[Rfam]
RNA sequence: ACAGAUACUGUAAACAUCCUACACUCUCAGCUGUGGAAAGUAGAAAGGCUGGGAGAAGGCUGUUUACUCUGUCUGC
Numbered sequence: 001a002c003a004g005a006u007a008c009u010g011u012a013a014a015c016a017u018c019c020u021a022c023a024c025u026c027u028c029a030g031c032u033g034u035g036g037a038a039a040g041u042a043g044a045a046a047g048g049c050u051g052g053g054a055g056a057a058g059g060c061u062g063u064u065u066a067c068u069c070u071g072u073c074u075g076c
Stems, first nucleotide, its partner, number of pairs: 002075005010067007018059003024055009